[Rfam]
RNA sequence: CAAAAAAAAGCCCUGCAGGUCAUCUUCUGCAGGGUCCUUCUAUUUCCUUCAACAAAGGGUAGAAGGCAAAGGGAGAGGAGAAACCGGAGGAAGAACUUAUGGGGAAACGUAAGUCUUCUCCGCGG
Numbered sequence: 001c002a003a004a005a006a007a008a009a010g011c012c013c014u015g016c017a018g019g020u021c022a023u024c025u026u027c028u029g030c031a032g033g034g035u036c037c038u039u040c041u042a043u044u045u046c047c048u049u050c051a052a053c054a055a056a057g058g059g060u061a062g063a064a065g066g067c068a069a070a071g072g073g074a075g076a077g078g079a080g081a082a083a084c085c086g087g088a089g090g091a092a093g094a095a096c097u098u099a100u101g102g103g104g105a106a107a108c109g110u111a112a113g114u115c116u117u118c119u120c121c122g123c124g125g
Stems, first nucleotide, its partner, number of pairs: 011034009035073005044061001046059004085122004090118004095114005